[Rfam]
RNA sequence: UGACGCAACCCUGGAGAGAUUCUAGAAAUAGGACAUCGAAGGAGUAACCUAGACAUCAUAGGGAAGCUUUCAGAUAAAAGGACAGGGAGUAAAGA
Numbered sequence: 001u002g003a004c005g006c007a008a009c010c011c012u013g014g015a016g017a018g019a020u021u022c023u024a025g026a027a028a029u030a031g032g033a034c035a036u037c038g039a040a041g042g043a044g045u046a047a048c049c050u051a052g053a054c055a056u057c058a059u060a061g062g063g064a065a066g067c068u069u070u071c072a073g074a075u076a077a078a079a080g081g082a083c084a085g086g087g088a089g090u091a092a093a094g095a
Stems, first nucleotide, its partner, number of pairs: 009087005020033004035075003038071002042069003048062004

Annotation: A member of the RNA family "Glycine riboswitch aptamer" from Alkalithermobacter paradoxus, 95 nucleotides long. Lineage of the source: Bacteria > Bacillota > Peptostreptococcales > Tepidibacteraceae > Alkalithermobacter.